[Rfam]
RNA: SmY spliceosomal RNA
Organism: Caenorhabditis elegans
RNA sequence: CAGCACGAUUUAACACUCUCAGGGCCUUACAAAAGACCCAGUGAACAAUUUUUGCAAACCCUGUCCUUUCAAGGUCAGGGUA
Numbered sequence: 001c002a003g004c005a006c007g008a009u010u011u012a013a014c015a016c017u018c019u020c021a022g023g024g025c026c027u028u029a030c031a032a033a034a035g036a037c038c039c040a041g042u043g044a045a046c047a048a049u050u051u052u053u054g055c056a057a058a059c060c061c062u063g064u065c066c067u068u069u070c071a072a073g074g075u076c077a078g079g080g081u082a
Base pairs, nucleotide, nucleotide: 022039023038024037026035027034028033058081059080060079061078062077063076065074066073067072